Shown here is a 144-nucleotide RNA sequence from Flavobacterium psychrophilum, a member of the family "Flavo-1 RNA".
RNA sequence: UAUUAGCCCCGAUUGCAGUGGAAAGCUUUUUGAAAUCUCGUUACAUUUUUUCUUGCUAAAAAAGAGCGACGGUAGGAGCUCCUUUUUUUGCUUAGAAAAAAGUAAACGAGAGGAAAAAACUUGUAACGAAAAGCGGGAAAUAGC
Number, nucleotide and partner (000 for none) at each position: 001u000002a000003u000004u000005a000006g000007c000008c000009c136010c135011g134012a000013u132014u131015g000016c000017a000018g127019u126020g000021g000022a000023a122024a121025g120026c000027u118028u117029u116030u115031u114032g000033a000034a000035a000036u000037c110038u109039c108040g107041u106042u105043a000044c000045a000046u000047u000048u000049u000050u000051u000052c000053u000054u000055g000056c000057u000058a000059a000060a000061a000062a000063a000064g000065a000066g000067c000068g000069a000070c000071g000072g000073u000074a000075g000076g000077a000078g000079c000080u000081c000082c000083u000084u000085u000086u000087u000088u000089u000090g000091c000092u000093u000094a000095g000096a000097a000098a000099a000100a000101a000102g000103u000104a000105a042106a041107c040108g039109a038110g037111a000112g000113g000114a031115a030116a029117a028118a027119a000120c025121u024122u023123g000124u000125a000126a019127c018128g000129a000130a000131a014132a013133g000134c011135g010136g009137g000138a000139a000140a000141u000142a000143g000144c000
The sequence is in the family's curated seed alignment.